[Rfam]
RNA sequence: CGAGUCGACCGGGCGGUCGCGUCACCGCUGCGGCUCCGGCCCGGCGGUGCCGAGGAACGUCCGGACUCCACAGGGCAGGGUGGUUGCUAACGGCAACCCGGGGCGACCCGCGGGACAGUGCCACAGAAAGCAGACCGCCCGCACUCCUCGGAGGAGCGGGUAAGGGUGAAACGGUGAGGUAAGAGCUCACCAGCACCCCGGGUGACCGGGGUGGCUAGGUAAACCCCACCCGGAGCAAGACCAAGACUGGCCGCCGUGAGCCCUCGGGCGAGCGGUGGUCGCGCGGACGUUCGAGGGCUGCCCGCCCGAUGUCCGCGGGUAGGUUGCUAGAGCCUGUCGGCGACGGCAGGCGUAGAUGGAUGGCCGCCCCCGGUGCGCGAGCACCGGGACAAAAUCCGGCGUACAGGUCGACUCGUCCG
Numbered sequence: 001c002g003a004g005u006c007g008a009c010c011g012g013g014c015g016g017u018c019g020c021g022u023c024a025c026c027g028c029u030g031c032g033g034c035u036c037c038g039g040c041c042c043g044g045c046g047g048u049g050c051c052g053a054g055g056a057a058c059g060u061c062c063g064g065a066c067u068c069c070a071c072a073g074g075g076c077a078g079g080g081u082g083g084u085u086g087c088u089a090a091c092g093g094c095a096a097c098c099c100g101g102g103g104c105g106a107c108c109c110g111c112g113g114g115a116c117a118g119u120g121c122c123a124c125a126g127a128a129a130g131c132a133g134a135c136c137g138c139c140c141g142c143a144c145u146c147c148u149c150g151g152a153g154g155a156g157c158g159g160g161u162a163a164g165g166g167u168g169a170a171a172c173g174g175u176g177a178g179g180u181a182a183g184a185g186c187u188c189a190c191c192a193g194c195a196c197c198c199c200g201g202g203u204g205a206c207c208g209g210g211g212u213g214g215c216u217a218g219g220u221a222a223a224c225c226c227c228a229c230c231c232g233g234a235g236c237a238a239g240a241c242c243a244a245g246a247c248u249g250g251c252c253g254c255c256g257u258g259a260g261c262c263c264u265c266g267g268g269c270g271a272g273c274g275g276u277g278g279u280c281g282c283g284c285g286g287a288c289g290u291u292c293g294a295g296g297g298c299u300g301c302c303c304g305c306c307c308g309a310u311g312u313c314c315g316c317g318g319g320u321a322g323g324u325u326g327c328u329a330g331a332g333c334c335u336g337u338c339g340g341c342g343a344c345g346g347c348a349g350g351c352g353u354a355g356a357u358g359g360a361u362g363g364c365c366g367c368c369c370c371c372g373g374u375g376c377g378c379g380a381g382c383a384c385c386g387g388g389a390c391a392a393a394a395u396c397c398g399g400c401g402u403a404c405a406g407g408u409c410g411a412c413u414c415g416u417c418c419g
Stems, first nucleotide, its partner, number of pairs: 001415010011404001012368007020052002023049008057402003061399005066235004073303004078231005083097005098112001099110004113226002118224002120220003135165002137161006144154002173191006193215001194213008239325004283316006295307004332351008
A member of the RNA family "Bacterial RNase P class A" from Catellatospora sp. TT07R-123, 419 nucleotides long. A search with the family's covariance model found it, with a score of 275 bits.